[Rfam]
RNA sequence: AGGUAAUGUCUACUAUACCUUUAUCAAUUGUAGGCACUCGGUCAUGCUGUGGGUUGCAAUAAACCUUAGACAUUCAUUGUCGAGGGUGUGACGUGAGGCAGGGUUGAAUGCCCU
Numbered sequence: 001a002g003g004u005a006a007u008g009u010c011u012a013c014u015a016u017a018c019c020u021u022u023a024u025c026a027a028u029u030g031u032a033g034g035c036a037c038u039c040g041g042u043c044a045u046g047c048u049g050u051g052g053g054u055u056g057c058a059a060u061a062a063a064c065c066u067u068a069g070a071c072a073u074u075c076a077u078u079g080u081c082g083a084g085g086g087u088g089u090g091a092c093g094u095g096a097g098g099c100a101g102g103g104u105u106g107a108a109u110g111c112c113c114u
Stems, first nucleotide, its partner, number of pairs: 001020004007036007037097004041092008051066005069081004100114005
RNA: epsC RNA
Organism: Paenibacillus solanacearum